[Rfam]
RNA: SAM-I/IV (S-adenosyl methionine) riboswitch aptamer
RNA sequence: ACAAUGUAUUAAGAGUGAGAUUAAGUUCUCCUCCAACCUGCCAACUCCGGCAAGGUGGAAAAAUGAUACGGUUUUUAUUAACAACAAAUGGAGGUUCA
Numbered sequence: 001a002c003a004a005u006g007u008a009u010u011a012a013g014a015g016u017g018a019g020a021u022u023a024a025g026u027u028c029u030c031c032u033c034c035a036a037c038c039u040g041c042c043a044a045c046u047c048c049g050g051c052a053a054g055g056u057g058g059a060a061a062a063a064u065g066a067u068a069c070g071g072u073u074u075u076u077a078u079u080a081a082c083a084a085c086a087a088a089u090g091g092a093g094g095u096u097c098a
Stems, first nucleotide, its partner, number of pairs: 006069005015031001017030004032059003037055003040051003045093004071082003